[Rfam]
RNA sequence: GUGCCAUGAUGUCAGUUGUCAACACGUCAUUCUGAAGGGUUGUGUGGAGCCCUUGUGGACUGAGCACC
Numbered sequence: 001g002u003g004c005c006a007u008g009a010u011g012u013c014a015g016u017u018g019u020c021a022a023c024a025c026g027u028c029a030u031u032c033u034g035a036a037g038g039g040u041u042g043u044g045u046g047g048a049g050c051c052c053u054u055g056u057g058g059a060c061u062g063a064g065c066a067c068c
Stems, first nucleotide, its partner, number of pairs: 001067004
RNA: Small nucleolar RNA SNORD63